[Rfam]
RNA sequence: CUGGAGGAUUCUGAAAAGCCAUAAAAGAGUAGGGA
Numbered sequence: 001c002u003g004g005a006g007g008a009u010u011c012u013g014a015a016a017a018g019c020c021a022u023a024a025a026a027g028a029g030u031a032g033g034g035a
Base pairs, nucleotide, nucleotide: 002021003020004019010034011033012032